A member of the RNA family "MIR6288 microRNA precursor family" from Prunus avium, 93 nucleotides long. The organism belongs to Prunus, within Eukaryota. It scores 82 bits against the family's covariance model. Pairs were carried over by alignment from the consensus structure, which was predicted with RNAalifold. Rfam 15.1 lists 293 matches to the family in 9 species.
Nucleotides: 093
Base pairs, nucleotide, nucleotide: 002092003091004090005089006088007087008086009085010084011083013081014080015079016078017077018076020074021073022072024071025070026069027068028067029066030065031064032063033062034061035060036059037058038057039056
Number, partner (000 for none) and nucleotide at each position: 001000c002092c003091a004090a005089a006088a007087u008086u009085a010084g011083u012000c013081a014080c015079u016078u017077g018076u019000c020074a021073u022072u023000u024071u025070u026069c027068u028067a029066a030065u031064u032063g033062g034061u035060u036059u037058u038057u039056a040000a041000u042000g043000u044000g045000u046000u047000a048000a049000a050000a051000u052000c053000u054000c055000c056039u057038a058037a059036a060035a061034a062033c063032c064031a065030a066029u067028u068027a069026g070025a071024a072022a073021a074020u075000a076018a077017c078016a079015a080014g081013u082000u083011g084010c085009u086008a087007a088006u089005u090004u091003u092002g093000a